A member of the RNA family "Glutamine riboswitch aptamer (glnA leader)" from Thermocoleostomius sinensis, 93 nucleotides long. Gene Ontology term of the family: glutamine binding. Lineage of the source: Bacteria > Cyanophyceae > Oculatellales > Thermocoleostomius > Thermocoleostomius sinensis. A search with the family's covariance model found it, with a score of 51 bits. For this family Rfam cites "Bacterial aptamers that selectively bind glutamine" (Ames and Breaker, RNA Biol, 2011).
RNA sequence: UUCGUUCAUCCCCCGCUAGGUCAAGUGACUGAAGCUCAACUGCAUCUAUGGCGGAGGGGACGGAAGUAGGGAGCUACCCCGAAGGAACGCGCC
Number, nucleotide and partner (000 for none) at each position: 001u000002u000003c089004g088005u087006u086007c085008a000009u060010c059011c058012c057013c056014c000015g000016c000017u000018a000019g000020g000021u000022c000023a000024a000025g000026u000027g000028a000029c000030u000031g000032a000033a000034g000035c000036u000037c000038a000039a000040c000041u000042g000043c000044a000045u000046c000047u000048a000049u000050g000051g000052c000053g000054g000055a000056g013057g012058g011059g010060a009061c000062g000063g090064a000065a000066g000067u000068a000069g080070g079071g078072a000073g000074c000075u000076a000077c000078c071079c070080c069081g000082a000083a000084g000085g007086a006087a005088c004089g003090c063091g000092c000093c000